A member of the RNA family "skipping-rope RNA" from Negativicoccus succinicivorans, 96 nucleotides long.
[Rfam]
RNA sequence: AGUAUUUGAGGUGGAAAAAUUCGUAGCAUCCACGCGCCGCUGGCUUGACAGAGGAGACUCGAGAGAUGUAGGAGAAGACUACGUCUACCAAAUACU
Numbered sequence: 001a002g003u004a005u006u007u008g009a010g011g012u013g014g015a016a017a018a019a020u021u022c023g024u025a026g027c028a029u030c031c032a033c034g035c036g037c038c039g040c041u042g043g044c045u046u047g048a049c050a051g052a053g054g055a056g057a058c059u060c061g062a063g064a065g066a067u068g069u070a071g072g073a074g075a076a077g078a079c080u081a082c083g084u085c086u087a088c089c090a091a092a093u094a095c096u
Stems, first nucleotide, its partner, number of pairs: 001096008011033005023082004035063001036044003068088005
Annotation: Rfam classes the family as a small RNA. Taxonomically the source falls in Negativicoccus (Bacteria, Bacillati, Veillonellales, Veillonellaceae).